tRNA: an 81-nucleotide sequence from Protaetiibacter sp. SSC-01. The family's RNA type in Rfam is transfer RNA. Lineage of the source: Bacteria > Bacillati > Actinomycetes > Micrococcales > Protaetiibacter.

[Rfam]
RNA sequence: GCGGGAGUGGUGGAACGGUAGACACGCAGGAUUUAGGUUCCUGUGCCUCACGGCGUGCGGGUUCGAGCCCCGCCUCCCGCA
Numbered sequence: 001g002c003g004g005g006a007g008u009g010g011u012g013g014a015a016c017g018g019u020a021g022a023c024a025c026g027c028a029g030g031a032u033u034u035a036g037g038u039u040c041c042u043g044u045g046c047c048u049c050a051c052g053g054c055g056u057g058c059g060g061g062u063u064c065g066a067g068c069c070c071c072g073c074c075u076c077c078c079g080c081a
Base pairs, nucleotide, nucleotide: 001080002079003078004077005076006075007074010025011024012023027043028042029041030040031039057073058072059071060070061069
The family's consensus secondary structure is taken from published work.